Record summary: This 136-nucleotide sequence from Oryza sativa belongs to the Rfam family "mir-160 microRNA precursor family". Gene Ontology terms of the family: miRNA-mediated post-transcriptional gene silencing and RISC complex.

[Rfam]
RNA sequence: AUAUGCCUGGCUCCCUGUAUGCCACUCGCGUAGCUGCCAAACUCAGUUGAAACAACUGCCUUCUCCCGGCGAGAUUCAGGCAUUGUGUUCGUACGUUUGGCUCUACUGCGGAUGGCGUGCGAGGAGCCAAGCAUGA
Numbered sequence: 001a002u003a004u005g006c007c008u009g010g011c012u013c014c015c016u017g018u019a020u021g022c023c024a025c026u027c028g029c030g031u032a033g034c035u036g037c038c039a040a041a042c043u044c045a046g047u048u049g050a051a052a053c054a055a056c057u058g059c060c061u062u063c064u065c066c067c068g069g070c071g072a073g074a075u076u077c078a079g080g081c082a083u084u085g086u087g088u089u090c091g092u093a094c095g096u097u098u099g100g101c102u103c104u105a106c107u108g109c110g111g112a113u114g115g116c117g118u119g120c121g122a123g124g125a126g127c128c129a130a131g132c133a134u135g136a
Base pairs, nucleotide, nucleotide: 002135003134004133005132006131008129009128010127011126012125013124014123016121017120018119019118020117021116022115023114024113027110028109029108